[Rfam]
The record is a 116-nucleotide RNA from Arthrobacter rhombi, which matches "SAM (S-adenosyl methionine) riboswitch aptamer" in Rfam. The family's consensus secondary structure is taken from published work. About the family: SAM-IV is a mRNA element that regulates gene expression via direct sensing of S-adenosylmethionine (SAM or AdoMet).
Nucleotides: 116
Stems, first nucleotide, its partner, number of pairs: 001080004009038001011037006021030002039067003044063003048058002083105005089100004
Number, partner (000 for none) and nucleotide at each position: 001080a002079a003078u004077c005000a006000a007000g008000a009038g010000a011037u012036c013035c014034a015033a016032c017000c018000c019000g020000a021030g022029g023000c024000c025000c026000u027000g028000g029022c030021c031000g032016g033015u034014u035013g036012g037011a038009c039067g040066g041065c042000a043000a044063c045062c046061c047000c048058c049057u050000u051000c052000g053000c054000c055000a056000u057049a058048g059000u060000g061046g062045g063044g064000u065041g066040c067039c068000c069000c070000a071000g072000g073000u074000g075000a076000c077004g078003a079002u080001u081000c082000g083105a084104c085103g086102c087101c088000g089100u090099c091098c092097c093000g094000a095000c096000c097092g098091g099090g100089a101087g102086g103085c104084g105083u106000a107000a108000g109000u110000a111000u112000g113000g114000c115000g116000c